Shown here is a 102-nucleotide RNA from Idiomarina sp. A28L, a member of the family "Alpha operon ribosome binding site". Its family is annotated with ribosome binding in the Gene Ontology. It is annotated as a cis-regulatory element. The source organism's lineage runs through Bacteria, Pseudomonadati, Gammaproteobacteria, Alteromonadales and Idiomarina. A search with the family's covariance model found it, with a score of 78 bits. On this family, see Schlax et al., J Biol Chem 2001: "Translational repression of the Escherichia coli alpha operon mRNA: importance of an mRNA conformational switch and a ternary entrapment complex". Rfam describes the family as follows. The bacterial alpha operon ribosome binding site is surrounded by this complex pseudoknotted structure. Translation of the mRNA produces 4 ribosomal protein products, one of which (S4) acts as a translational repressor by binding to the nested pseudoknot region. The mechanism of repression is thought to involve a conformational switch in the pseudoknot region and ribosome entrapment.
RNA sequence: AUAGUAUACCGGUUGAGUAUCCUAACGGGCUUUUCAACUGGUGCCCAUUAAACUAUAGGAGAUAUGUUAGUGGCCCGUAUAGCUGGCAUUAACGUCCCUGAC
Numbered sequence: 001a002u003a004g005u006a007u008a009c010c011g012g013u014u015g016a017g018u019a020u021c022c023u024a025a026c027g028g029g030c031u032u033u034u035c036a037a038c039u040g041g042u043g044c045c046c047a048u049u050a051a052a053c054u055a056u057a058g059g060a061g062a063u064a065u066g067u068u069a070g071u072g073g074c075c076c077g078u079a080u081a082g083c084u085g086g087c088a089u090u091a092a093c094g095u096c097c098c099u100g101a102c
Stems, first nucleotide, its partner, number of pairs: 004046001007043007021086002026077004034101003